[Rfam]
RNA: ZMP/ZTP riboswitch aptamer (pfl RNA motif)
RNA sequence: GCACAGCUGUGUGACUGGCGGUAAACGUGGAGCACCACGAGGAAGCACGGCUGAGAAAAUUGUCGACCGCCUGGGCAUAUUAC
Dot-bracket structure: ...(((((((((..(([[[[[.....((((....))))..))..))))))))).......((((..]]]]]..))))......
Numbered sequence: 001g002c003a004c005a006g007c008u009g010u011g012u013g014a015c016u017g018g019c020g021g022u023a024a025a026c027g028u029g030g031a032g033c034a035c036c037a038c039g040a041g042g043a044a045g046c047a048c049g050g051c052u053g054a055g056a057a058a059a060u061u062g063u064c065g066a067c068c069g070c071c072u073g074g075g076c077a078u079a080u081u082a083c
Stems, first nucleotide, its partner, number of pairs: 004053009015042002017071005027038004061077004